[Rfam]
RNA sequence: UGGGGACGUAGCAGACUCCCCUUUAGACGAUUCUCGUCCAAGUGCUGC
Dot-bracket structure: .(((((....[[[[..)))))....(((((...)))))......]]]]
chrB-b RNA: a 48-nucleotide RNA sequence. Rfam's curators put it in the seed alignment. It is annotated as a cis-regulatory element.